[Rfam]
RNA sequence: UGCACAGUAGCAUUUAGGAUGAGCUGGAGCAGUUAACAGUAAAGCUUACUUCUGAAAAAUUUUUAAGUCAAUACUCGCUUGGAUCUAUAAGACCGGGACGAAGAC
Numbered sequence: 001u002g003c004a005c006a007g008u009a010g011c012a013u014u015u016a017g018g019a020u021g022a023g024c025u026g027g028a029g030c031a032g033u034u035a036a037c038a039g040u041a042a043a044g045c046u047u048a049c050u051u052c053u054g055a056a057a058a059a060u061u062u063u064u065a066a067g068u069c070a071a072u073a074c075u076c077g078c079u080u081g082g083a084u085c086u087a088u089a090a091g092a093c094c095g096g097g098a099c100g101a102a103g104a105c
Stems, first nucleotide, its partner, number of pairs: 001031003005026004011021001075101003078097005084092002